This 127-nucleotide RNA sequence from Pipistrellus kuhlii belongs to the Rfam family "Small nucleolar RNA SNORA17". It is annotated as an H/ACA-box small nucleolar RNA.

[Rfam]
RNA sequence: GCUGCCCCUCGAGGCGUUGCAGGUGGGCUGCCGUGCCCGCCUGCGUCAUGAGGGGCAGAGAGCACAGAGGCUCGCCUACGCCCAGCGCCCUGGCCGUGGGCACCUGGAUGGUUGACAGCCUGACACU
Numbered sequence: 001g002c003u004g005c006c007c008c009u010c011g012a013g014g015c016g017u018u019g020c021a022g023g024u025g026g027g028c029u030g031c032c033g034u035g036c037c038c039g040c041c042u043g044c045g046u047c048a049u050g051a052g053g054g055g056c057a058g059a060g061a062g063c064a065c066a067g068a069g070g071c072u073c074g075c076c077u078a079c080g081c082c083c084a085g086c087g088c089c090c091u092g093g094c095c096g097u098g099g100g101c102a103c104c105u106g107g108a109u110g111g112u113u114g115a116c117a118g119c120c121u122g123a124c125a126c127u
Stems, first nucleotide, its partner, number of pairs: 002058010013047003019044010068121005079110002082107004087101004
The literature on the family includes a 1997 paper in J Mol Biol by Ofengand and Bakin, "Mapping to nucleotide resolution of pseudouridine residues in large subunit ribosomal RNAs from representative eukaryotes, prokaryotes, archaebacteria, mitochondria and chloroplasts".
Rfam links the family to the GO terms RNA processing and nucleolus.
Rfam 15.1 lists 5,784 matches to the family in 673 species.